Rfam assigns this 72-nucleotide RNA sequence from Portunus trituberculatus to the family "mir-71 microRNA precursor family".
NCBI's taxonomy places the organism under Eukaryota, Bilateria, Protostomia, Communostraca, Portunus.
For this family Rfam cites "Direct sequencing and expression analysis of a large number of miRNAs in Aedes aegypti and a multi-species survey of novel mosquito miRNAs" (Li et al., BMC Genomics, 2009).
Pairs were carried over by alignment from the consensus structure, which was predicted with RNAalifold.
The family has 36 seed sequences and 372 matches in Rfam 15.1.

[Rfam]
RNA sequence: UCGCCGUGAAAGACAUGGGUAGUGAGAUGUACGAUUAUUGCAACAUCUCACUAUCUUGUCUUUCACGGGGGC
Numbered sequence: 001u002c003g004c005c006g007u008g009a010a011a012g013a014c015a016u017g018g019g020u021a022g023u024g025a026g027a028u029g030u031a032c033g034a035u036u037a038u039u040g041c042a043a044c045a046u047c048u049c050a051c052u053a054u055c056u057u058g059u060c061u062u063u064c065a066c067g068g069g070g071g072c
Stems, first nucleotide, its partner, number of pairs: 008064008017056003021052009
Dot-bracket structure: .......((((((((.(((.(((((((((..............))))))))).)))))))))))........